[Rfam]
The family of this 89-nucleotide sequence from Pokkaliibacter plantistimulans is "sRNA-Xcc1". Taxonomically the source falls in Pokkaliibacter (Bacteria, Pseudomonadati, Gammaproteobacteria, Balneatrichaceae). A reference for the family is Chen et al. (2011), "sRNA-Xcc1, an integron-encoded transposon- and plasmid-transferred trans-acting sRNA, is under the positive control of the key virulence regulators HrpG and HrpX of Xanthomonas campestris pathovar campestris", RNA Biol.
RNA sequence: GGCCGGGUGGAGAGGCGUAAUACAACACCCGCAAGGGGAAUAUGCCCGGAGCCUCGUAUGUGCUCUAGUUGACACCCGGCUACCUACUG
Dot-bracket structure: (((((((((....(((.((........(((....)))...)).))).(((((.........)))))......)))))))))........